[Rfam]
RNA: mir-252 microRNA precursor family
RNA sequence: GCCUGUUUCUAAGUACUAGUGCCGCAGGAGCGGGAAUGGAAAAAAGCUCCUGCUGCAUCGGUGCUUAUCAACAGCA
Numbered sequence: 001g002c003c004u005g006u007u008u009c010u011a012a013g014u015a016c017u018a019g020u021g022c023c024g025c026a027g028g029a030g031c032g033g034g035a036a037u038g039g040a041a042a043a044a045a046g047c048u049c050c051u052g053c054u055g056c057a058u059c060g061g062u063g064c065u066u067a068u069c070a071a072c073a074g075c076a
Stems, first nucleotide, its partner, number of pairs: 003074005010067008019058001024053007